[Rfam]
RNA: MIR2118 microRNA precursor family
RNA sequence: GCCUGGAAGAGGAAGAAUAGAUGGUCUUAGAGUAGUGGGAAUGGGAACAUGGAGGAAAGCCUAAAUUGCUUGGUUUUAACCUCUAGUGUUGGAGUUUAGAAUUUGGUAUGGUGUUUUACGAUGCCUCCCAUUCCUAUUCUAAAGCAUUCCUUGUUCUUUCUUUUUUGG
Numbered sequence: 001g002c003c004u005g006g007a008a009g010a011g012g013a014a015g016a017a018u019a020g021a022u023g024g025u026c027u028u029a030g031a032g033u034a035g036u037g038g039g040a041a042u043g044g045g046a047a048c049a050u051g052g053a054g055g056a057a058a059g060c061c062u063a064a065a066u067u068g069c070u071u072g073g074u075u076u077u078a079a080c081c082u083c084u085a086g087u088g089u090u091g092g093a094g095u096u097u098a099g100a101a102u103u104u105g106g107u108a109u110g111g112u113g114u115u116u117u118a119c120g121a122u123g124c125c126u127c128c129c130a131u132u133c134c135u136a137u138u139c140u141a142a143a144g145c146a147u148u149c150c151u152u153g154u155u156c157u158u159u160c161u162u163u164u165u166u167g168g
Base pairs, nucleotide, nucleotide: 009159010158011157012156013155016152017151020149021148025144027142028141029140030139031138036136037135038134039133040132041131042130043129044128045127046126048123049122050121052119056117057116058115059114060113